The family of this 73-nucleotide RNA is "Ocean-V RNA". It is annotated as a small RNA. Rfam's curators put it in the seed alignment.
RNA sequence: AUAUUUUAUGACUUCAUUCAAUUGAAGUCCUCAAAGUGAGUACGUCGUAAGAUCGAAGCGCUGACGGAAAACU
Numbered sequence: 001a002u003a004u005u006u007u008a009u010g011a012c013u014u015c016a017u018u019c020a021a022u023u024g025a026a027g028u029c030c031u032c033a034a035a036g037u038g039a040g041u042a043c044g045u046c047g048u049a050a051g052a053u054c055g056a057a058g059c060g061c062u063g064a065c066g067g068a069a070a071a072c073u
Stems, first nucleotide, its partner, number of pairs: 010029007043066004